[Rfam]
RNA sequence: GCGCCGUCUAAGUGAAUGCUUUGCCACAGUCUUCGACCAUGUCAAAUGAAGCCUGGGCUAAGAUUCGCUUAGGCCGGCGU
Numbered sequence: 001g002c003g004c005c006g007u008c009u010a011a012g013u014g015a016a017u018g019c020u021u022u023g024c025c026a027c028a029g030u031c032u033u034c035g036a037c038c039a040u041g042u043c044a045a046a047u048g049a050a051g052c053c054u055g056g057g058c059u060a061a062g063a064u065u066c067g068c069u070u071a072g073g074c075c076g077g078c079g080u
Base pairs, nucleotide, nucleotide: 004077005076006075009071010070011069012068013067014066015065016064017063019062020061021060023058024057025056027055028054029053
RNA: mir-86 microRNA precursor family
Organism: Caenorhabditis remanei